The family of this 86-nucleotide RNA sequence from Xenopus tropicalis is "Small nucleolar RNA SNORD103/SNORD85". A search with the family's covariance model found it, with a score of 47 bits. Gene Ontology terms of the family: nucleolus and RNA processing. Lineage of the source: Eukaryota > Eumetazoa > Bilateria > Tetrapoda > Silurana. It is annotated as a C/D-box small nucleolar RNA. On this family, see Huttenhofer et al., EMBO J 2001: "RNomics: an experimental approach that identifies 201 candidates for novel, small, non-messenger RNAs in mouse".
[Rfam]
RNA sequence: UUCGGCUUUGAUGACACACUUGCCCUCACUGUAAUCUUUGGUUCUGUGAUGAGGUCAAUAUUGUACUCAAAUUAAACUGAGCCUAA
Numbered sequence: 001u002u003c004g005g006c007u008u009u010g011a012u013g014a015c016a017c018a019c020u021u022g023c024c025c026u027c028a029c030u031g032u033a034a035u036c037u038u039u040g041g042u043u044c045u046g047u048g049a050u051g052a053g054g055u056c057a058a059u060a061u062u063g064u065a066c067u068c069a070a071a072u073u074a075a076a077c078u079g080a081g082c083c084u085a086a
Base pairs, nucleotide, nucleotide: 001086002085004083005082006081007080008079